RNA sequence: GGACAGCCGACGCCGAGUCCCCGCAUGGCGCGAGCCAGGGGAGCCGGGGAACCAUGUUCCCGAGGUGAAUCGGGCACCCACGCGCGAGCGGGGGAGUCCGUAGGAGACCUUCCUCUCCGAACCUGUCAGCUAACCCGGUAGGCGUGAGGGAAGGAAAGG
Dot-bracket structure: ..........((((...(((((...............)))))((((((....(........)(((.....((((......................))))..((((........))))...))).........)))))).))))...............